[Rfam]
RNA sequence: UUUGAUCGAGCCCACCCACAGCGGCUGAUCCGUCGGGCGUCCCUGCCCAUAGGUGGCCAACAACGCCUCGGCUUC
Dot-bracket structure: .............(.((.....)).)....(......((....((.(((....))).))....)).....)....
Numbered sequence: 001u002u003u004g005a006u007c008g009a010g011c012c013c014a015c016c017c018a019c020a021g022c023g024g025c026u027g028a029u030c031c032g033u034c035g036g037g038c039g040u041c042c043c044u045g046c047c048c049a050u051a052g053g054u055g056g057c058c059a060a061c062a063a064c065g066c067c068u069c070g071g072c073u074u075c
Stems, first nucleotide, its partner, number of pairs: 014026001016024002031071001038065002044059002047056003
Overview
This 75-nucleotide RNA sequence from Mycobacterium marinum belongs to the Rfam family "ASpks TB sRNA". The literature on the family includes a 2009 paper in Mol Microbiol by Arnvig and Young, "Identification of small RNAs in Mycobacterium tuberculosis". The organism belongs to Mycobacterium marinum, within Bacteria. The family's consensus secondary structure is taken from published work. By type it is an antisense RNA.